[Rfam]
Annotation: The record is a 144-nucleotide RNA sequence from Bacillus licheniformis, which matches "c-di-AMP riboswitch aptamer (ydaO/yuaA leader)" in Rfam. Rfam's curators put it in the seed alignment. The organism belongs to Bacillus licheniformis, within Bacteria. Rfam links the family to the GO terms cyclic-di-AMP binding and regulation of gene expression. Pairs were carried over by alignment from the consensus structure.

Nucleotides: 144
Base pairs, nucleotide, nucleotide: 011128012127013126014125018028019027020026029123030122031121032120033119034118039061062108063107064106070080071079072078073077083102084101085100086099
Number, partner (000 for none) and nucleotide at each position: 001000a002000a003000u004000c005000c006000a007000a008000a009000a010000u011128c012127g013126c014125u015000u016000a017000a018028u019027c020026u021000a022000a023000a024000a025000a026020a027019g028018a029123g030122c031121g032120g033119g034118g035000g036000a037000a038000c039061c040000a041000u042000u043000u044000a045000g046000a047000g048000g049000c050000g051000u052000a053000c054000a055000g056000c057000c058000u059000c060000c061039g062108g063107g064106g065000u066000g067000a068000a069000u070080c071079c072078u073077u074000u075000u076000a077073a078072a079071g080070g081000u082000a083102g084101g085100g086099c087000a088000a089000a090000c091000u092000c093000u094000c095000g096000u097000g098000a099086g100085c101084c102083c103000g104000a105000a106064u107063c108062c109000g110000u111000c112000a113000g114000c115000u116000a117000a118034c119033c120032u121031c122030g123029u124000a125014a126013g127012c128011g129000u130000u131000a132000a133000g134000a135000g136000a137000g138000a139000g140000g141000g142000a143000g144000a